[Rfam]
RNA sequence: UACCUGUAAUGGGUCUCCACCAGAAGGUGCACCGUCAUCCCGCUCCACCUCCCUGUCACCACCUUUGCAGGAGCCCAGUUCGAGUCCUGUGGUGUCCUUUAAUCCACUCACGUAGGUAACUCGUGAUGCUGGAGGGACCUAAGCAAUGAAUGCAAUUCGAUGAGGGAAGAAAUUCUGCAAUCGGGUAUUCACCAUGGGACGGCGGCGCUGGAUUACUCCCACGAGGGUUGGGGGGCGGAGAGGGGCUGGUCGUAUCGACUGGUAUU
Numbered sequence: 001u002a003c004c005u006g007u008a009a010u011g012g013g014u015c016u017c018c019a020c021c022a023g024a025a026g027g028u029g030c031a032c033c034g035u036c037a038u039c040c041c042g043c044u045c046c047a048c049c050u051c052c053c054u055g056u057c058a059c060c061a062c063c064u065u066u067g068c069a070g071g072a073g074c075c076c077a078g079u080u081c082g083a084g085u086c087c088u089g090u091g092g093u094g095u096c097c098u099u100u101a102a103u104c105c106a107c108u109c110a111c112g113u114a115g116g117u118a119a120c121u122c123g124u125g126a127u128g129c130u131g132g133a134g135g136g137a138c139c140u141a142a143g144c145a146a147u148g149a150a151u152g153c154a155a156u157u158c159g160a161u162g163a164g165g166g167a168a169g170a171a172a173u174u175c176u177g178c179a180a181u182c183g184g185g186u187a188u189u190c191a192c193c194a195u196g197g198g199a200c201g202g203c204g205g206c207g208c209u210g211g212a213u214u215a216c217u218c219c220c221a222c223g224a225g226g227g228u229u230g231g232g233g234g235g236c237g238g239a240g241a242g243g244g245g246c247u248g249g250u251c252g253u254a255u256c257g258a259c260u261g262g263u264a265u266u
Stems, first nucleotide, its partner, number of pairs: 002014003019263005029255001035254001038245004043240004048235005063227002065224003070219004075211005080205003084200009094138001096136005102130001105128002108126005114121002139143001147191007157184005166175003
RNA: Fungal signal recognition particle RNA